A member of the RNA family "Betaproteobacteria transfer-messenger RNA" from Pelistega indica, 326 nucleotides long. Taxonomically the source falls in Pelistega (Bacteria, Pseudomonadati, Pseudomonadota, Betaproteobacteria). The family's RNA type in Rfam is non-coding RNA gene. Gene Ontology term of the family: RNA catabolic process. From the family's description: Bacterial tmRNA, also known as 10Sa RNA or SsrA, is named for its dual tRNA and mRNA-like properties. Its role is to liberate the mRNA from a stalled ribosome. To accomplish this part of the tmRNA is used as a reading frame that ends in a translation stop signal. The broken mRNA is replaced in the ribosome by the tmRNA and translation of the tmRNA leads to addition of a proteolysis tag to the incomplete protein enabling recognition by a protease. The base pairs follow the family's consensus structure, which is taken from published work.

RNA sequence: UUAGUAAAAAAUAUUCGCAGUUAGCUAAAUAUGUGUUAGAAUAAACACUAAGCUGUAUAUCUAGUCGACUGACGGAUUUCUGGACGCGGGUUCAACUCCCGCCGUCUCCACCAAUAGGGUAUUGGUACAGUAUCUUACUGAUGGGGACGUAUUGGUUUCGACAGGGGUAAAUAGGAAGAUUGGCAGCCGGUAGGCGAUGACCGUAAAUCAAGCAAAACUUAUAAAUGCAAACGAUGAAAGUUACGCAUUAGCCGCCUAAUAACAGGCCGCUAGGAGUGUGAUUCACUUGGCAACAGAACGAAUCAAGCAGCUUCGGCUGCCUUUUU
Numbered sequence: 001u002u003a004g005u006a007a008a009a010a011a012u013a014u015u016c017g018c019a020g021u022u023a024g025c026u027a028a029a030u031a032u033g034u035g036u037u038a039g040a041a042u043a044a045a046c047a048c049u050a051a052g053c054u055g056u057a058u059a060u061c062u063a064g065u066c067g068a069c070u071g072a073c074g075g076a077u078u079u080c081u082g083g084a085c086g087c088g089g090g091u092u093c094a095a096c097u098c099c100c101g102c103c104g105u106c107u108c109c110a111c112c113a114a115u116a117g118g119g120u121a122u123u124g125g126u127a128c129a130g131u132a133u134c135u136u137a138c139u140g141a142u143g144g145g146g147a148c149g150u151a152u153u154g155g156u157u158u159c160g161a162c163a164g165g166g167g168u169a170a171a172u173a174g175g176a177a178g179a180u181u182g183g184c185a186g187c188c189g190g191u192a193g194g195c196g197a198u199g200a201c202c203g204u205a206a207a208u209c210a211a212g213c214a215a216a217a218c219u220u221a222u223a224a225a226u227g228c229a230a231a232c233g234a235u236g237a238a239a240g241u242u243a244c245g246c247a248u249u250a251g252c253c254g255c256c257u258a259a260u261a262a263c264a265g266g267c268c269g270c271u272a273g274g275a276g277u278g279u280g281a282u283u284c285a286c287u288u289g290g291c292a293a294c295a296g297a298a299c300g301a302a303u304c305a306a307g308c309a310g311c312u313u314c315g316g317c318u319g320c321c322u323u324u325u326u
Stems, first nucleotide, its partner, number of pairs: 052187004061183002064180002069175002076168007086102005103149007188203004273288002276286002279305006307320005